[Rfam]
Nucleotides: 105
Base pairs, nucleotide, nucleotide: 010092011091012090013089014088015087016086018084019083021081022080023079024078025077027075028074029073030072031070032069033067034066035065038062039061040060041059043057044056045055
Number, partner (000 for none) and nucleotide at each position: 001000c002000g003000c004000g005000g006000c007000g008000a009000g010092u011091g012090c013089c014088c015087c016086g017000u018084g019083g020000c021081c022080u023079c024078u025077g026000c027075c028074c029073g030072a031070c032069g033067c034066g035065g036000a037000c038062c039061c040060u041059g042000a043057c044056g045055u046000a047000c048000u049000u050000c051000c052000c053000c054000a055045a056044c057043g058000c059041c060040a061039g062038g063000u064000g065035c066034c067033g068000g069032c070031g071000g072030u073029c074028g075027g076000u077025c078024a079023g080022a081021g082000a083019c084018c085000c086016c087015g088014g089013g090012g091011c092010a093000u094000u095000c096000c097000c098000c099000g100000c101000c102000g103000a104000c105000g